Shown here is a 90-nucleotide RNA sequence, a member of the family "S4-Clostridia ribosomal protein leader". The base pairs follow the family's consensus structure, which is taken from published work. The family's RNA type in Rfam is cis-regulatory leader. The sequence is in the family's curated seed alignment. On this family, see Eckert and Weinberg, BMC Microbiol 2020: "Discovery of 20 novel ribosomal leader candidates in bacteria and archaea".
RNA sequence: GAAAAACUGUAUAUAUAUGCAGUUGGGUAUUUUUCUUUGUACGUCAUUGAACAGGAAUUUCCGUUUUGCAAAGAACAUACCUCAAUUUAG
Numbered sequence: 001g002a003a004a005a006a007c008u009g010u011a012u013a014u015a016u017a018u019g020c021a022g023u024u025g026g027g028u029a030u031u032u033u034u035c036u037u038u039g040u041a042c043g044u045c046a047u048u049g050a051a052c053a054g055g056a057a058u059u060u061c062c063g064u065u066u067u068g069c070a071a072a073g074a075a076c077a078u079a080c081c082u083c084a085a086u087u088u089a090g
Stems, first nucleotide, its partner, number of pairs: 005024008025082006